[Rfam]
RNA sequence: UAUUUUGGUUCAAUGAAUGGAUUCACUCGCGAGAUGACGUGAUUGUUUCAUCAAGGAUGAGGACAUGACAUCAUAUUACCCGCCAUCGCACGAAAUUAAUAGGAUGUCACGUCCUUAUCCUAGAUAAAACAACCACGUCAUCUUGCAGGUGAAUACAUUUAUCGAUAGUGUGGUU
Numbered sequence: 001u002a003u004u005u006u007g008g009u010u011c012a013a014u015g016a017a018u019g020g021a022u023u024c025a026c027u028c029g030c031g032a033g034a035u036g037a038c039g040u041g042a043u044u045g046u047u048u049c050a051u052c053a054a055g056g057a058u059g060a061g062g063a064c065a066u067g068a069c070a071u072c073a074u075a076u077u078a079c080c081c082g083c084c085a086u087c088g089c090a091c092g093a094a095a096u097u098a099a100u101a102g103g104a105u106g107u108c109a110c111g112u113c114c115u116u117a118u119c120c121u122a123g124a125u126a127a128a129a130c131a132a133c134c135a136c137g138u139c140a141u142c143u144u145g146c147a148g149g150u151g152a153a154u155a156c157a158u159u160u161a162u163c164g165a166u167a168g169u170g171u172g173g174u175u
Stems, first nucleotide, its partner, number of pairs: 001172003006167002010165002013162002016159003021154007029146004034141005040135002043132005050125002054121001056119002062113003068107005074101005085096002
RNA: MIR807 microRNA precursor family